[Rfam]
pan motif: a 97-nucleotide RNA from Paenibacillus antri. The family's consensus secondary structure is taken from published work. A search with the family's covariance model found it, with a score of 52 bits.
RNA sequence: AGGACGGUAUCCGAACGGAACCGUACCUCCGAGCCGUUGUCUUUUCUUUUUUCUCCAUCUAUUUUCUGCUCUGAGCCGCAAGGACCGAGACGGAAAG
Numbered sequence: 001a002g003g004a005c006g007g008u009a010u011c012c013g014a015a016c017g018g019a020a021c022c023g024u025a026c027c028u029c030c031g032a033g034c035c036g037u038u039g040u041c042u043u044u045u046c047u048u049u050u051u052u053c054u055c056c057a058u059c060u061a062u063u064u065u066c067u068g069c070u071c072u073g074a075g076c077c078g079c080a081a082g083g084a085c086c087g088a089g090a091c092g093g094a095a096a097g
Base pairs, nucleotide, nucleotide: 001028002027003026004024005023006022007021008020010019011018066093067092068091069089070088071087073085076083077082